[Rfam]
RNA sequence: AAUUUUGUUUAUAGGAACAAAGAGAAGCAUAUUUAUUCUAUACUCGAUGAGUACCAAUACGCAAUGGGG
Dot-bracket structure: ..((.(((((....))))).))....................(((.....(((....))).....))).
RNA: Plastid-clpP 5UTR RNA